Description: This 74-nucleotide RNA sequence from Thermincola carboxydiphila belongs to the Rfam family "Group II catalytic intron D1-D4-1".
RNA sequence: CAACCCUUGUCGCAAGGCAAGGCUGAACUGGCAGAAGUAAGGCAGAGGCCAUAGUAUUCAAAACGAGGAAGGGC
Number, nucleotide and partner (000 for none) at each position: 001c025002a024003a000004c000005c022006c021007u020008u019009g018010u017011c016012g000013c000014a000015a000016g011017g010018c009019a008020a007021g006022g005023c000024u002025g001026a000027a000028c000029u000030g000031g000032c000033a000034g000035a000036a000037g000038u046039a000040a000041g000042g000043c000044a000045g000046a038047g000048g074049c073050c072051a000052u000053a000054g000055u000056a000057u067058u066059c065060a000061a000062a000063a000064c000065g059066a058067g057068g000069a000070a000071g000072g050073g049074c048

A search with the family's covariance model found it, with a score of 51 bits.